[Rfam]
This 177-nucleotide sequence from Sporolactobacillus putidus belongs to the Rfam family "Lysine riboswitch aptamer". About the family: Riboswitches are metabolite binding domains within certain messenger RNAs that serve as precision sensors for their corresponding targets. A search with the family's covariance model found it, with a score of 112 bits. The literature on the family includes a 2003 paper in Nucleic Acids Res by Rodionov et al., "Regulation of lysine biosynthesis and transport genes in bacteria: yet another RNA riboswitch?". Lineage of the source: Bacteria > Bacilli > Caryophanales > Sporolactobacillaceae > Sporolactobacillus. The base pairs follow the family's consensus structure, which is taken from published work.

RNA sequence: UGAAGUGAUAGAGGAGCAGUCUUCAUGACUAAACCGCGUGAGAAGGAUGAACUUCACCGACCGCGGCGGAAAGGGAAGCCUGCCGAAGCCGGGUGCGGUUCAUCACGCGACCGGCUGGAUCUGCACUGAACAAGUGCAGGGCUGUCACACUCAAGGGUGUGGAGGACUAUCUCAGCA
Numbered sequence: 001u002g003a004a005g006u007g008a009u010a011g012a013g014g015a016g017c018a019g020u021c022u023u024c025a026u027g028a029c030u031a032a033a034c035c036g037c038g039u040g041a042g043a044a045g046g047a048u049g050a051a052c053u054u055c056a057c058c059g060a061c062c063g064c065g066g067c068g069g070a071a072a073g074g075g076a077a078g079c080c081u082g083c084c085g086a087a088g089c090c091g092g093g094u095g096c097g098g099u100u101c102a103u104c105a106c107g108c109g110a111c112c113g114g115c116u117g118g119a120u121c122u123g124c125a126c127u128g129a130a131c132a133a134g135u136g137c138a139g140g141g142c143u144g145u146c147a148c149a150c151u152c153a154a155g156g157g158u159g160u161g162g163a164g165g166a167c168u169a170u171c172u173c174a175g176c177a
Stems, first nucleotide, its partner, number of pairs: 007171005016083004021078004034066005087116006094109004117143002120140008145162007